The family of this 120-nucleotide RNA sequence from Brucella anthropi is "Alphaproteobacterial ar14". Rfam describes the family as follows. Smr14C2 was renamed NfeR1 (Nodule Formation Efficiency RNA) highly expressed in salt stress and during the symbiotic interaction on legume roots. Rfam links the family to the GO term biological process involved in symbiotic interaction.

[Rfam]
RNA sequence: GCUUGUUCGGUUUUACUCCUCCUCCCAAAAACCGAACCCAAAGCGCGAUACUCCUCCUCCCAAUCGCGCUUUAUAGAUCCGCCCACUGCACAUUCCUCCUCCCAGUGCAGUGGGCGCUCU
Number, nucleotide and partner (000 for none) at each position: 001g000002c000003u000004u000005g037006u036007u000008c034009g033010g032011u031012u030013u029014u028015a000016c000017u000018c000019c000020u000021c000022c000023u000024c000025c000026c000027a000028a014029a013030a012031a011032c010033c009034g008035a000036a006037c005038c000039c000040a072041a071042a070043g069044c068045g067046c066047g065048a064049u063050a000051c000052u000053c000054c000055u000056c000057c000058u000059c000060c000061c000062a000063a049064u048065c047066g046067c045068g044069c043070u042071u041072u040073a000074u000075a000076g000077a000078u000079c000080c000081g115082c114083c113084c112085a111086c110087u109088g108089c107090a106091c105092a000093u000094u000095c000096c000097u000098c000099c000100u000101c000102c000103c000104a000105g091106u090107g089108c088109a087110g086111u085112g084113g083114g082115c081116g000117c000118u000119c000120u000